[Rfam]
RNA sequence: UAAAUUAACGUCUAAUUACGUCGUAUAAUAUUGGGAAUAUGGCCCAAGAGUUUCUACCGAGCCACCGUAAAUGGUUUGACUACGAGGUAAGUGUUAAUGGAA
Numbered sequence: 001u002a003a004a005u006u007a008a009c010g011u012c013u014a015a016u017u018a019c020g021u022c023g024u025a026u027a028a029u030a031u032u033g034g035g036a037a038u039a040u041g042g043c044c045c046a047a048g049a050g051u052u053u054c055u056a057c058c059g060a061g062c063c064a065c066c067g068u069a070a071a072u073g074g075u076u077u078g079a080c081u082a083c084g085a086g087g088u089a090a091g092u093g094u095u096a097a098u099g100g101a102a
Base pairs, nucleotide, nucleotide: 018088019087021085022084023083024082025081029049031047032046033045034044035043058078059077060076061075062074063073064072